[Rfam]
The family of this 84-nucleotide RNA sequence from Zingiber officinale is "small nucleolar RNA snoR114". Lineage of the source: Eukaryota > Streptophytina > Spermatophyta > commelinids > Zingiber.
RNA sequence: UGGUGAUGAGGAUUACUGCGCUUUAGUGAUGUCAGGGUUCAUCACAACCAUCUGAUUAAGAUGACAAAAAGUGCUUCUGAGCCA
Numbered sequence: 001u002g003g004u005g006a007u008g009a010g011g012a013u014u015a016c017u018g019c020g021c022u023u024u025a026g027u028g029a030u031g032u033c034a035g036g037g038u039u040c041a042u043c044a045c046a047a048c049c050a051u052c053u054g055a056u057u058a059a060g061a062u063g064a065c066a067a068a069a070a071g072u073g074c075u076u077c078u079g080a081g082c083c084a
Base pairs, nucleotide, nucleotide: 001084002083003082004081